[Rfam]
Nucleotides: 084
Base pairs, nucleotide, nucleotide: 012037013036017032018031019030020029021028022027040078041077042076043075045074046073047072048069049068050067055063056062057061
Number, partner (000 for none) and nucleotide at each position: 001000c002000c003000c004000a005000g006000u007000g008000a009000a010000a011000g012037g013036c014000a015000u016000a017032c018031u019030c020029a021028u022027u023000g024000a025000a026000a027022a028021a029020u030019g031018g032017g033000g034000g035000c036013g037012c038000a039000a040078a041077g042076u043075c044000a045074c046073a047072g048069g049068u050067c051000u052000a053000a054000a055063g056062c057061a058000u059000u060000a061057u062056g063055c064000u065000a066000u067050g068049a069048u070000g071000g072047c073046u074045g075043g076042a077041u078040u079000a080000c081000c082000u083000g084000g